Rfam assigns this 251-nucleotide part of an RNA from Borreliella burgdorferi to the family "Bacterial large subunit ribosomal RNA". A reference for the family is Yusupov et al. (2001), "Crystal structure of the ribosome at 5.5 A resolution", Science. The sequence is in the family's curated seed alignment.

RNA sequence: GUUGGAUAUUUGAGAGGAGCUAUCUUUAGUACGAGAGGACCGAGAUGGACGAACCUCUAGUGUACCAGUUAUCCUGCCAAGGGUAAGUGCUGGGUAGCUACGUUCGGAAAGGAUAACCGCUGAAAGCAUCUAAGUGGGAAGCCUUCCUCAAGAUGAGAUAUCCUUUAAGGGUCCUGGAAGAAUACCAGGUUGAUAGGUUAGAAGUGUAAGUAUAGCAAUAUAUUAAGCUGACUAAUACUAAUUACCCGUAU
Numbered sequence: 001g002u003u004g005g006a007u008a009u010u011u012g013a014g015a016g017g018a019g020c021u022a023u024c025u026u027u028a029g030u031a032c033g034a035g036a037g038g039a040c041c042g043a044g045a046u047g048g049a050c051g052a053a054c055c056u057c058u059a060g061u062g063u064a065c066c067a068g069u070u071a072u073c074c075u076g077c078c079a080a081g082g083g084u085a086a087g088u089g090c091u092g093g094g095u096a097g098c099u100a101c102g103u104u105c106g107g108a109a110a111g112g113a114u115a116a117c118c119g120c121u122g123a124a125a126g127c128a129u130c131u132a133a134g135u136g137g138g139a140a141g142c143c144u145u146c147c148u149c150a151a152g153a154u155g156a157g158a159u160a161u162c163c164u165u166u167a168a169g170g171g172u173c174c175u176g177g178a179a180g181a182a183u184a185c186c187a188g189g190u191u192g193a194u195a196g197g198u199u200a201g202a203a204g205u206g207u208a209a210g211u212a213u214a215g216c217a218a219u220a221u222a223u224u225a226a227g228c229u230g231a232c233u234a235a236u237a238c239u240a241a242u243u244a245c246c247c248g249u250a251u
Stems, first nucleotide, its partner, number of pairs: 004163008014149004020048007050106005058100003065093005070085006110144003117137005169247004173189005194240003197236005203229002210223005
The organism belongs to Borreliella burgdorferi, within Bacteria. Pairs were carried over by alignment from the consensus structure, which is taken from published work.